[Rfam]
RNA sequence: UAAUGUUACCACUCUUUUAGAAUUUAUAUACCAGAUUUUCUGGUUUUCACUGGAAAACCCCA
Numbered sequence: 001u002a003a004u005g006u007u008a009c010c011a012c013u014c015u016u017u018u019a020g021a022a023u024u025u026a027u028a029u030a031c032c033a034g035a036u037u038u039u040c041u042g043g044u045u046u047u048c049a050c051u052g053g054a055a056a057a058c059c060c061c062a
Stems, first nucleotide, its partner, number of pairs: 034059001036057009